[Rfam]
RNA sequence: GUGAGGCUGGAAAAGGAAGAGAUGAGGGUCAAAGAGCAGCUGGCAUGUGAACAUGCAAGAAAGCCUAAGCUAUGGUUAACUCCUGGAGGUGACCAGAUGGGAUCAUGCUUCAAGCUUUCCUAAUGCCUCCCAUGCCUACUGUUCUUCGGUCCUCCUUCCUUUUCCUUUUGGCU
Numbered sequence: 001g002u003g004a005g006g007c008u009g010g011a012a013a014a015g016g017a018a019g020a021g022a023u024g025a026g027g028g029u030c031a032a033a034g035a036g037c038a039g040c041u042g043g044c045a046u047g048u049g050a051a052c053a054u055g056c057a058a059g060a061a062a063g064c065c066u067a068a069g070c071u072a073u074g075g076u077u078a079a080c081u082c083c084u085g086g087a088g089g090u091g092a093c094c095a096g097a098u099g100g101g102a103u104c105a106u107g108c109u110u111c112a113a114g115c116u117u118u119c120c121u122a123a124u125g126c127c128u129c130c131c132a133u134g135c136c137u138a139c140u141g142u143u144c145u146u147c148g149g150u151c152c153u154c155c156u157u158c159c160u161u162u163u164c165c166u167u168u169u170g171g172c173u
Stems, first nucleotide, its partner, number of pairs: 009164005015158003024154003029149002032146007042136006049129002052125003059119006
Dot-bracket structure: ........(((((.(((......(((..((.(((((((...((((((.((.(((....((((((.................................................))))))...)))..)).))))))...))))))).))..))).))).))))).........
Background:
The record is a 173-nucleotide RNA sequence from Miscanthus lutarioriparius, which matches "MIR2118 microRNA precursor family" in Rfam. The match comes from Rfam's covariance-model search (94 bits). Lineage of the source: Eukaryota > Streptophyta > Spermatophyta > Poaceae > Miscanthus. The base pairs follow the family's consensus structure, which was predicted with RNAalifold. Its family is annotated with RISC complex and miRNA-mediated post-transcriptional gene silencing in the Gene Ontology.